Shown here is a 154-nucleotide sequence from Acanthoscelides obtectus, a member of the family "U12 minor spliceosomal RNA". The organism belongs to Acanthoscelides, within Eukaryota. The pairing is the family consensus, mapped onto this sequence. The family is grouped with related families in Rfam's "U2 clan".
RNA sequence: GUGCCUUAAACUAAUGAGUAAGGAAAAUAUAAGGGCCCUGGUGAUGCUUGGCUCACAUGCUAACCUAGGUUAGCCCCAAAUUUUUGCAGGGGUACAGGUCGUCCCGUGAAGGACCGUCUACUUUAGCGGACCUUCUGGUGAAGCGAUCUGCCCC
Numbered sequence: 001g002u003g004c005c006u007u008a009a010a011c012u013a014a015u016g017a018g019u020a021a022g023g024a025a026a027a028u029a030u031a032a033g034g035g036c037c038c039u040g041g042u043g044a045u046g047c048u049u050g051g052c053u054c055a056c057a058u059g060c061u062a063a064c065c066u067a068g069g070u071u072a073g074c075c076c077c078a079a080a081u082u083u084u085u086g087c088a089g090g091g092g093u094a095c096a097g098g099u100c101g102u103c104c105c106g107u108g109a110a111g112g113a114c115c116g117u118c119u120a121c122u123u124u125a126g127c128g129g130a131c132c133u134u135c136u137g138g139u140g141a142a143g144c145g146a147u148c149u150g151c152c153c154c
Stems, first nucleotide, its partner, number of pairs: 004023005033054005040047001059074004089154005096149007105138001108135005114129004
Gene Ontology terms of the family: U12 snRNP, mRNA branch site recognition and pre-mRNA branch point binding.